[Rfam]
RNA sequence: AUGUUCUCCAGAGUUCUCUCAAAACACUUCAGCGAAAGCAUUCAAUGGAUUUUUAGUAUAUAAUGCUUGUUUCUGGCUGAAGUGUUUGGGGGAACAUCUGGGACCAU
Numbered sequence: 001a002u003g004u005u006c007u008c009c010a011g012a013g014u015u016c017u018c019u020c021a022a023a024a025c026a027c028u029u030c031a032g033c034g035a036a037a038g039c040a041u042u043c044a045a046u047g048g049a050u051u052u053u054u055a056g057u058a059u060a061u062a063a064u065g066c067u068u069g070u071u072u073c074u075g076g077c078u079g080a081a082g083u084g085u086u087u088g089g090g091g092g093a094a095c096a097u098c099u100g101g102g103a104c105c106a107u
Stems, first nucleotide, its partner, number of pairs: 005103004011098002013095008022087012035074001
Dot-bracket structure: ....((((..((((((((((.((((((((((((.(......................................).)))))))))))))))))))).)).))))....
mir-395 microRNA precursor family: a 107-nucleotide RNA from Carex littledalei. The family's consensus secondary structure was predicted with PFOLD. On this family, see Jones-Rhoades and Bartel, Mol Cell 2004: "Computational Identification of Plant MicroRNAs and Their Targets, Including a Stress-Induced miRNA". Rfam 15.1 lists 2,798 matches to the family in 234 species. About the family: mir-395 was identified in both Arabidopsis thaliana and Oryza sativa computationally and was later experimentally verified. mir-395 is thought to target mRNAs coding for ATP sulphurylases. The mature sequence is excised from the 3' arm of the hairpin. Rfam links the family to the GO terms miRNA-mediated post-transcriptional gene silencing and RISC complex.